[Rfam]
RNA sequence: AACUGCCCCCUUAGGGGCGUUGGAUCCAGGAGCUCCUGGAUCCAACGCCCCUAAGGGGGCAGUU
Numbered sequence: 001a002a003c004u005g006c007c008c009c010c011u012u013a014g015g016g017g018c019g020u021u022g023g024a025u026c027c028a029g030g031a032g033c034u035c036c037u038g039g040a041u042c043c044a045a046c047g048c049c050c051c052u053a054a055g056g057g058g059g060c061a062g063u064u
Stems, first nucleotide, its partner, number of pairs: 001064030
This 64-nucleotide sequence from Camphora micrantha belongs to the Rfam family "mir-9242 microRNA precursor family". Taxonomically the source falls in Camphora (Eukaryota, Streptophytina, Tracheophyta, Lauraceae). Gene Ontology terms of the family: RISC complex and miRNA-mediated post-transcriptional gene silencing. The family's consensus secondary structure was predicted with RNAalifold.